[Rfam]
RNA sequence: AACGACCACGCGGGAGAGUCCCGGACCUGAUCCGGGCGCCGAAGGAGCAACCCCUCCCCGGAAUCUCUCAGGCACCCGUACCGCGCGGCCAUG
Numbered sequence: 001a002a003c004g005a006c007c008a009c010g011c012g013g014g015a016g017a018g019u020c021c022c023g024g025a026c027c028u029g030a031u032c033c034g035g036g037c038g039c040c041g042a043a044g045g046a047g048c049a050a051c052c053c054c055u056c057c058c059c060g061g062a063a064u065c066u067c068u069c070a071g072g073c074a075c076c077c078g079u080a081c082c083g084c085g086c087g088g089c090c091a092u093g
Stems, first nucleotide, its partner, number of pairs: 006088002009085005020036004038073003041069002045067003051061002
RNA: Glycine riboswitch aptamer
Organism: Yinghuangia soli